[Rfam]
RNA sequence: GUUGGGAUGAUGACUGGAAGUGUCGGAUACCCCUUCACUCCUGCAUGAGUGACAGUCUGCAGUCUGACGAAC
Numbered sequence: 001g002u003u004g005g006g007a008u009g010a011u012g013a014c015u016g017g018a019a020g021u022g023u024c025g026g027a028u029a030c031c032c033c034u035u036c037a038c039u040c041c042u043g044c045a046u047g048a049g050u051g052a053c054a055g056u057c058u059g060c061a062g063u064c065u066g067a068c069g070a071a072c
Base pairs, nucleotide, nucleotide: 001072002071003070005068

The record is a 72-nucleotide RNA from Ochotona princeps, which matches "Small nucleolar RNA SNORD101" in Rfam. Rfam links the family to the GO terms RNA processing and nucleolus. Lineage of the source: Eukaryota > Metazoa > Boreoeutheria > Glires > Ochotona. A reference for the family is Vitali et al. (2003), "Identification of 13 novel human modification guide RNAs", Nucleic Acids Res.